Shown here is an 87-nucleotide sequence from Deinococcus puniceus, a member of the family "ZMP/ZTP riboswitch aptamer (pfl RNA motif)". Pairs were carried over by alignment from the consensus structure, which is taken from published work.
[Rfam]
RNA sequence: ACAGCGGGCGGCAACUGGCGCUGAACGUGGGGUCUACCACGGGGAAGCCGCCCACGCAAGACUGGAUCGCACGCCUGGGUCGGACGC
Numbered sequence: 001a002c003a004g005c006g007g008g009c010g011g012c013a014a015c016u017g018g019c020g021c022u023g024a025a026c027g028u029g030g031g032g033u034c035u036a037c038c039a040c041g042g043g044g045a046a047g048c049c050g051c052c053c054a055c056g057c058a059a060g061a062c063u064g065g066a067u068c069g070c071a072c073g074c075c076u077g078g079g080u081c082g083g084a085c086g087c
Stems, first nucleotide, its partner, number of pairs: 004055001006053007015044002017075004027040004065081004